[Rfam]
Nucleotides: 344
Stems, first nucleotide, its partner, number of pairs: 040055005059196005070189007085175003089172003095111005112157007197212004202223003311325004316343003
Number, partner (000 for none) and nucleotide at each position: 001000g002000c003000c004000c005000u006000u007000u008000u009000c010000a011000u012000u013000u014000g015000c016000g017000g018000a019000u020000c021000g022000a023000g024000a025000u026000c027000c028000u029000a030000u031000a032000u033000c034000c035000c036000u037000c038000c039000u040055g041054c042053c043052g044051g045000g046000u047000u048000c049000g050000c051044c052043c053042g054041g055040c056000u057000a058000u059196g060195a061194u062193g063192a064000u065000a066000a067000a068000c069000u070189g071188c072187g073186g074185c075184g076183u077000g078000g079000a080000a081000u082000a083000g084000g085175c086174g087173c088000a089172g090171c091170g092000g093000a094000c095111c096110c097109g098108g099107g100000g101000g102000c103000g104000g105000u106000a107099c108098c109097c110096g111095g112157c113156g114155g115154c116153u117152c118151c119000a120000c121000c122000a123000u124000c125000a126000u127000c128000u129000c130000c131000g132000c133000u134000c135000c136000g137000g138000c139000g140000g141000g142000g143000a144000c145000g146000u147000u148000g149000a150000c151118g152117g153116g154115g155114c156113c157112g158000a159000a160000c161000u162000a163000g164000g165000a166000u167000c168000g169000a170091c171090g172089u173087g174086u175085g176000u177000u178000c179000a180000a181000a182000g183076g184075c185074g186073c187072u188071g189070u190000u191000u192063u193062c194061a195060u196059c197212c198211g199210g200209g201000c202223u203222g204221a205000g206000u207000a208000a209200c210199c211198c212197g213000u214000a215000a216000a217000a218000g219000g220000c221204u222203c223202a224000a225000a226000a227000c228000c229000c230000a231000u232000a233000a234000g235000u236000g237000c238000c239000a240000a241000c242000g243000a244000u245000a246000a247000c248000g249000a250000a251000g252000c253000a254000c255000u256000u257000g258000c259000u260000c261000u262000c263000g264000c265000u266000g267000c268000g269000u270000a271000a272000u273000u274000c275000u276000a277000g278000g279000g280000g281000c282000u283000a284000a285000c286000g287000c288000c289000c290000u291000g292000a293000a294000g295000u296000u297000a298000c299000a300000a301000g302000g303000u304000u305000a306000g307000a308000a309000c310000g311325c312324g313323g314322u315000c316343g317342g318341g319000c320000c321000g322314a323313c324312c325311g326000g327000g328000c329000a330000a331000c332000a333000g334000a335000a336000c337000g338000g339000a340000u341318u342317c343316c344000a

The record is a 344-nucleotide RNA sequence from Novosphingobium piscinae, which matches "Alphaproteobacteria transfer-messenger RNA" in Rfam. Rfam's curators write: Bacterial tmRNA, also known as 10Sa RNA or SsrA, is named for its dual tRNA and mRNA-like properties. Its family is annotated with RNA catabolic process in the Gene Ontology.